[Rfam]
RNA sequence: CCAGUGCCUAUUUCUUUGUCAUCCCAGUGCCCAGACACUGGGAUCCAGAAAAGUUUGCUUGUAAGCAAGCAAACUAGCAUAGAAAAACGUUUUCGAUGAGAUUAUAUGGAAAACUGGAUUCCAGCGUCACGCGCUGGAAUGACACCUUCUGUAUAAACAUUA
Numbered sequence: 001c002c003a004g005u006g007c008c009u010a011u012u013u014c015u016u017u018g019u020c021a022u023c024c025c026a027g028u029g030c031c032c033a034g035a036c037a038c039u040g041g042g043a044u045c046c047a048g049a050a051a052a053g054u055u056u057g058c059u060u061g062u063a064a065g066c067a068a069g070c071a072a073a074c075u076a077g078c079a080u081a082g083a084a085a086a087a088c089g090u091u092u093u094c095g096a097u098g099a100g101a102u103u104a105u106a107u108g109g110a111a112a113a114c115u116g117g118a119u120u121c122c123a124g125c126g127u128c129a130c131g132c133g134c135u136g137g138a139a140u141g142a143c144a145c146c147u148u149c150u151g152u153a154u155a156a157a158c159a160u161u162a
Stems, first nucleotide, its partner, number of pairs: 011157003015153001017144006024137007034128003038124011

The family of this 162-nucleotide RNA from Trichonephila clavata is "Wolbachia sRNA 46".
NCBI's taxonomy places the organism under Eukaryota, Metazoa, Bilateria, Araneae, Trichonephila.
A search with the family's covariance model found it, with a score of 69 bits.